[Rfam]
RNA sequence: UAUAUAUUAGGUGAUGGAGUUCGCCUUUAAACGCGUAAUGCUAAUGACUCCUACAAAAAA
Numbered sequence: 001u002a003u004a005u006a007u008u009a010g011g012u013g014a015u016g017g018a019g020u021u022c023g024c025c026u027u028u029a030a031a032c033g034c035g036u037a038a039u040g041c042u043a044a045u046g047a048c049u050c051c052u053a054c055a056a057a058a059a060a
Stems, first nucleotide, its partner, number of pairs: 010025004016051006033041002
Background
Fluoride riboswitch aptamer (crcB RNA motif): a 60-nucleotide RNA from Clostridium botulinum. Rfam links the family to the GO terms positive regulation of gene expression and response to fluoride. The sequence is in the family's curated seed alignment. On this family, see Baker et al., Science 2012: "Widespread genetic switches and toxicity resistance proteins for fluoride".